A member of the RNA family "Small nucleolar RNA SNORA5" from Ciccaba nigrolineata, 138 nucleotides long. The family is grouped with related families in Rfam's "SNORA5 clan". The family's consensus secondary structure was predicted with RNAfold. Its family is annotated with RNA processing and nucleolus in the Gene Ontology. Taxonomically the source falls in Ciccaba (Eukaryota, Teleostomi, Sauropsida, Sauria). Rfam classes the family as an H/ACA-box small nucleolar RNA.

RNA sequence: UGCAGCCCCGUCAAAUUCGGUCCUUGCCUCCUCCGUGGUGGGGACUGGCCAGCCGGCUGCCACAGCAACUUCUGUGGUGUGUGAGCCCCACGUCCCCUCCUGUGGGACCCUGGGGAGGAAAUCACACCACAGACACUG
Numbered sequence: 001u002g003c004a005g006c007c008c009c010g011u012c013a014a015a016u017u018c019g020g021u022c023c024u025u026g027c028c029u030c031c032u033c034c035g036u037g038g039u040g041g042g043g044a045c046u047g048g049c050c051a052g053c054c055g056g057c058u059g060c061c062a063c064a065g066c067a068a069c070u071u072c073u074g075u076g077g078u079g080u081g082u083g084a085g086c087c088c089c090a091c092g093u094c095c096c097c098u099c100c101u102g103u104g105g106g107a108c109c110c111u112g113g114g115g116a117g118g119a120a121a122u123c124a125c126a127c128c129a130c131a132g133a134c135a136c137u138g
Stems, first nucleotide, its partner, number of pairs: 002060004018047011074130006086115005